Rfam assigns this 128-nucleotide RNA from Cricetulus griseus to the family "Small Cajal body specific RNA 4". Taxonomically the source falls in Cricetulus (Eukaryota, Euteleostomi, Dipnotetrapodomorpha, Eutheria). A reference for the family is Darzacq et al. (2002), "Cajal body-specific small nuclear RNAs: a novel class of 2'-O-methylation and pseudouridylation guide RNAs", EMBO J. About the family: scaRNAs are a specific class of small nuclear RNAs which localise to the Cajal bodies and guide the modification of RNA polymerase II transcribed spliceosomal RNAs U1, U2, U4, U5 and U12. It scores 138 bits against the family's covariance model. By type it is a small Cajal body RNA. Rfam 15.1 lists 634 matches to the family in 510 species. Gene Ontology terms of the family: nucleolus, Cajal body and RNA processing.
RNA sequence: GCUGGAGGAUCAAGAAGGCUGAGUCUGAUGAAGCAAGACUUUGCUGAUACACUCCUCCUAGAAAAAAGGGUGGAAAGAACAGCCCUUAUUGGAGACAACCACAGGGUUGACUGCACUACCCAACAUUU
Number, nucleotide and partner (000 for none) at each position: 001g000002c061003u060004g058005g057006a056007g055008g054009a053010u000011c000012a000013a000014g000015a000016a000017g045018g044019c043020u000021g041022a040023g039024u038025c037026u036027g000028a000029u000030g000031a000032a000033g000034c000035a000036a026037g025038a024039c023040u022041u021042u000043g019044c018045u017046g000047a000048u000049a000050c000051a000052c000053u009054c008055c007056u006057c005058c004059u000060a003061g002062a000063a000064a000065a000066a000067a000068g121069g120070g119071u118072g000073g000074a000075a000076a000077g000078a112079a000080c109081a108082g107083c106084c105085c104086u103087u000088a000089u000090u101091g100092g099093a000094g000095a000096c000097a000098a000099c092100c091101a090102c000103a086104g085105g084106g083107u082108u081109g080110a000111c000112u078113g000114c000115a000116c000117u000118a071119c070120c069121c068122a000123a000124c000125a000126u000127u000128u000